Archaeal small subunit ribosomal RNA: a 600-nucleotide part of an RNA from uncultured euryarchaeote. NCBI's taxonomy places the organism under Archaea, Methanobacteriati, Methanobacteriota. For this family Rfam cites "The comparative RNA web (CRW) site: an online database of comparative sequence and structure information for ribosomal, intron, and other RNAs" (Cannone et al., BMC Bioinformatics, 2002). Rfam 15.1 lists 709 matches to the family in 491 species.

RNA sequence: UGGCGGGGGAGCACCACAAGGGGUGGAGCCUGCGGUUUAAUUGGAUUCAACGCCGGACAUCUCACCGGGGGCGACGGCAGAGUGAAGGCCAAGUCGACGACUUUGCCGGACUCGCCGAGAGGUGGUGCAUGGCCGCCGUCAGCUCGUAUCGUGAGACGUCCUGUUAAGUCAGGCAACGAGCGAGACCCUUCCCUCUAGUUGCCAGCGGAUUCCACUGGAAUGCCGGGCACUCUAGAGGCACCGCUGCCGAUAAGGCAGAGGAAGGAGAGGGCGACGGUAGGUCCGUAUGCCCCGAAUCCCCCGGGCAACACGCGGGCUACAAUGCGUAGGACAGAGGGCUGCGACCCCGAGAGGGGGAGCUAAUCCCUAAACCUACGCCUAGUUCGGAUCGAGGGCUGCAACCCGCCCUCGUGAAGCUGGAAUCCCUAGUAACUGUGUGUCACUAUCGCACGGUGAAUACGUCCCUGCUCCUUGCACACACCGCCCGUCAAGCCAUCCGAGUGGGAUCUGGAUGAGGUCUGCUCGAUUUGAGCAGGUCAAAUCCGGGUUUCGCAAGGAGGGCUAAGUCGUAACAAGGUAGCUGUAGGGGAAUCUGCGGCU
Numbered sequence: 001u002g003g004c005g006g007g008g009g010a011g012c013a014c015c016a017c018a019a020g021g022g023g024u025g026g027a028g029c030c031u032g033c034g035g036u037u038u039a040a041u042u043g044g045a046u047u048c049a050a051c052g053c054c055g056g057a058c059a060u061c062u063c064a065c066c067g068g069g070g071g072c073g074a075c076g077g078c079a080g081a082g083u084g085a086a087g088g089c090c091a092a093g094u095c096g097a098c099g100a101c102u103u104u105g106c107c108g109g110a111c112u113c114g115c116c117g118a119g120a121g122g123u124g125g126u127g128c129a130u131g132g133c134c135g136c137c138g139u140c141a142g143c144u145c146g147u148a149u150c151g152u153g154a155g156a157c158g159u160c161c162u163g164u165u166a167a168g169u170c171a172g173g174c175a176a177c178g179a180g181c182g183a184g185a186c187c188c189u190u191c192c193c194u195c196u197a198g199u200u201g202c203c204a205g206c207g208g209a210u211u212c213c214a215c216u217g218g219a220a221u222g223c224c225g226g227g228c229a230c231u232c233u234a235g236a237g238g239c240a241c242c243g244c245u246g247c248c249g250a251u252a253a254g255g256c257a258g259a260g261g262a263a264g265g266a267g268a269g270g271g272c273g274a275c276g277g278u279a280g281g282u283c284c285g286u287a288u289g290c291c292c293c294g295a296a297u298c299c300c301c302c303g304g305g306c307a308a309c310a311c312g313c314g315g316g317c318u319a320c321a322a323u324g325c326g327u328a329g330g331a332c333a334g335a336g337g338g339c340u341g342c343g344a345c346c347c348c349g350a351g352a353g354g355g356g357g358a359g360c361u362a363a364u365c366c367c368u369a370a371a372c373c374u375a376c377g378c379c380u381a382g383u384u385c386g387g388a389u390c391g392a393g394g395g396c397u398g399c400a401a402c403c404c405g406c407c408c409u410c411g412u413g414a415a416g417c418u419g420g421a422a423u424c425c426c427u428a429g430u431a432a433c434u435g436u437g438u439g440u441c442a443c444u445a446u447c448g449c450a451c452g453g454u455g456a457a458u459a460c461g462u463c464c465c466u467g468c469u470c471c472u473u474g475c476a477c478a479c480a481c482c483g484c485c486c487g488u489c490a491a492g493c494c495a496u497c498c499g500a501g502u503g504g505g506a507u508c509u510g511g512a513u514g515a516g517g518u519c520u521g522c523u524c525g526a527u528u529u530g531a532g533c534a535g536g537u538c539a540a541a542u543c544c545g546g547g548u549u550u551c552g553c554a555a556g557g558a559g560g561g562c563u564a565a566g567u568c569g570u571a572a573c574a575a576g577g578u579a580g581c582u583g584u585a586g587g588g589g590a591a592u593c594u595g596c597g598g599c600u
Stems, first nucleotide, its partner, number of pairs: 001478002003475003007472007016462002020426005025320001027318008035309002041056004065304007075117004079112002087107003091103003121293002124291004130287002132282003135278004142181006149156002160173004187270004192238007202227002206225003209221004241261002244258005324378007336367003341360002345356004385416001390411007432454008481576001483573001486569002489566001491563004496558003501553013516538010579600009